[Rfam]
RNA sequence: AUUUUGGCAAUAUAAAUUAAGGUAAAAGAAGUUACAUACUCGGCUGAAGAGAACCUUAAUUGGUCCUAGAACGGCCUGAAGUAGGGAGGUUUUAGUCGGUGGGUCCGAAGACUUCUUCCUCGGGAAUCCGACACUACCCAAUCGUACGGACGGCUGGGUGUCUUUUGAAGAUUUCCCCUCUUCCACGAAA
Numbered sequence: 001a002u003u004u005u006g007g008c009a010a011u012a013u014a015a016a017u018u019a020a021g022g023u024a025a026a027a028g029a030a031g032u033u034a035c036a037u038a039c040u041c042g043g044c045u046g047a048a049g050a051g052a053a054c055c056u057u058a059a060u061u062g063g064u065c066c067u068a069g070a071a072c073g074g075c076c077u078g079a080a081g082u083a084g085g086g087a088g089g090u091u092u093u094a095g096u097c098g099g100u101g102g103g104u105c106c107g108a109a110g111a112c113u114u115c116u117u118c119c120u121c122g123g124g125a126a127u128c129c130g131a132c133a134c135u136a137c138c139c140a141a142u143c144g145u146a147c148g149g150a151c152g153g154c155u156g157g158g159u160g161u162c163u164u165u166u167g168a169a170g171a172u173u174u175c176c177c178c179u180c181u182u183c184c185a186c187g188a189a190a
Stems, first nucleotide, its partner, number of pairs: 001033001003031003040188003078183004084176002095132005104124005110118002134160001136159005
Rfam assigns this 190-nucleotide RNA from Agrilus planipennis to the family "R2 RNA element".
This family represents the 3' UTR region of the R2 retrotransposable element. This family is known to interact with the R2-encoded reverse transcriptase in a reaction known as target primed reverse transcription (TPRT).
The match comes from Rfam's covariance-model search (41 bits).
It is annotated as a cis-regulatory element.
Lineage of the source: Eukaryota > Opisthokonta > Eumetazoa > Dicondylia > Agrilus.
The literature on the family includes a 2004 paper in RNA by Ruschak et al., "Secondary structure models of the 3' untranslated regions of diverse R2 RNAs".